[Rfam]
RNA sequence: CGGCUGUAGCUAAAUUGAUGAAAUAGAAGUUUAUUGGCCUGUUGUUGCUGAGAUAUCUUUUUUAAUCGACACAUUUGCUUACAAGUUAUUAAGACAA
Numbered sequence: 001c002g003g004c005u006g007u008a009g010c011u012a013a014a015u016u017g018a019u020g021a022a023a024u025a026g027a028a029g030u031u032u033a034u035u036g037g038c039c040u041g042u043u044g045u046u047g048c049u050g051a052g053a054u055a056u057c058u059u060u061u062u063u064a065a066u067c068g069a070c071a072c073a074u075u076u077g078c079u080u081a082c083a084a085g086u087u088a089u090u091a092a093g094a095c096a097a
Stems, first nucleotide, its partner, number of pairs: 024091003028087004036079003041074002044070004
Annotation
The record is a 97-nucleotide RNA sequence from Papaver nudicaule, which matches "Small nucleolar RNA snoR109" in Rfam. It scores 39 bits against the family's covariance model.